[Rfam]
Nucleotides: 382
Base pairs, nucleotide, nucleotide: 004382007378009345010344011343012342013341014340016050017049018048019047020046021045022044023043024042025041026040027039055376056375057374059373060372061371062370063369064261065260066259067258068257069087070086071085072084073083074082093256094255095254097252098119099118100117101116102115103114120142121140122139123138124137125136126135127134128133143251144250146194147193148192149191155187157185158184162181163180164179165178166177167176168175200249201248202245203244204243216233217232218231219230220229221228222227265281266280267279285315286314287313288312289311290310291309316330317329318328319327320326347361348360349359350358351357
Number, partner (000 for none) and nucleotide at each position: 001000a002000a003000u004382g005000g006000a007378a008000g009345g010344u011343g012342a013341u014340u015000g016050a017049g018048g019047u020046u021045u022044a023043a024042a025041g026040a027039a028000a029000a030000a031000a032000u033000u034000a035000a036000u037000u038000g039027u040026u041025u042024u043023u044022u045021a046020a047019g048018c049017u050016u051000a052000g053000g054000a055376a056375a057374g058000u059373c060372c061371a062370u063369g064261c065260u066259a067258g068257c069087a070086c071085a072084u073083g074082c075000u076000g077000c078000g079000a080000u081000u082074g083073u084072a085071u086070g087069u088000a089000g090000u091000g092000u093256u094255u095254g096000u097252g098119u099118c100117u101116a102115a103114g104000g105000a106000a107000u108000a109000a110000a111000u112000a113000a114103c115102u116101u117100a118099g119098a120142g121140u122139a123138u124137u125136u126135u127134u128133g129000g130000u131000u132000u133128c134127a135126a136125a137124a138123g139122u140121a141000a142120c143251g144250g145000c146194g147193u148192u149191u150000u151000u152000u153000g154000a155187u156000a157185u158184c159000u160000a161000a162181g163180g164179a165178u166177u167176u168175a169000u170000c171000u172000u173000a174000u175168u176167g177166a178165a179164u180163c181162u182000a183000u184158g185157a186000a187155a188000c189000a190000a191149a192148a193147a194146c195000u196000g197000a198000a199000a200249g201248u202245g203244u204243c205000a206000c207000a208000g209000a210000g211000a212000c213000g214000a215000g216233c217232u218231a219230a220229u221228u222227a223000g224000a225000a226000a227222u228221a229220a230219u231218u232217a233216g234000g235000u236000g237000a238000a239000a240000c241000g242000c243204g244203a245202u246000a247000a248201a249200c250144c251143c252097c253000u254095c255094a256093a257068g258067c259066u260065a261064g262000c263000a264000a265281c266280c267279c268000a269000a270000a271000a272000a273000a274000u275000g276000g277000u278000a279267g280266g281265g282000g283000c284000a285315u286314g287313u288312a289311a290310a291309a292000c293000g294000a295000u296000g297000a298000a299000a300000u301000g302000a303000a304000a305000u306000u307000a308000g309291u310290u311289u312288u313287a314286c315285a316330c317329u318328a319327c320326u321000u322000u323000u324000u325000g326320a327319g328318u329317a330316g331000a332000a333000g334000a335000u336000a337000a338000a339000u340014g341013a342012u343011c344010a345009c346000a347361c348360u349359u350358g351357u352000u353000u354000u355000u356000a357351a358350c359349a360348a361347g362000a363000a364000c365000a366000a367000a368000a369063c370062a371061u372060g373059g374057c375056u376055u377000a378007u379000g380000c381000a382004c